[Rfam]
Description
The family of this 138-nucleotide RNA from Jatropha curcas is "small nucleolar RNA snoR137". The literature on the family includes a 2009 paper in Nucleic Acids Res by Chen and Wu, "Mining small RNA sequencing data: a new approach to identify small nucleolar RNAs in Arabidopsis".

RNA sequence: GUUGCUUCUUUAAUAAUAGAGUGGCCAUUGAACAAUUAUUAGUCACUUUUAAAUCUGGAGCAUAUAUAAAGUGAAUGCCAGUUUUAAACAGCAUAAUUUGCUUCCUCAGAAUUGUGCUACCUGUCUCCUGGUAAAUUU
Numbered sequence: 001g002u003u004g005c006u007u008c009u010u011u012a013a014u015a016a017u018a019g020a021g022u023g024g025c026c027a028u029u030g031a032a033c034a035a036u037u038a039u040u041a042g043u044c045a046c047u048u049u050u051a052a053a054u055c056u057g058g059a060g061c062a063u064a065u066a067u068a069a070a071g072u073g074a075a076u077g078c079c080a081g082u083u084u085u086a087a088a089c090a091g092c093a094u095a096a097u098u099u100g101c102u103u104c105c106u107c108a109g110a111a112u113u114g115u116g117c118u119a120c121c122u123g124u125c126u127c128c129u130g131g132u133a134a135a136u137u138u
Stems, first nucleotide, its partner, number of pairs: 003062006017051004021046005077132005090118003094114005
Its family is annotated with RNA processing and nucleolus in the Gene Ontology. The base pairs follow the family's consensus structure, which was predicted with RNAalifold. The family has 4 seed sequences and 808 matches in Rfam 15.1.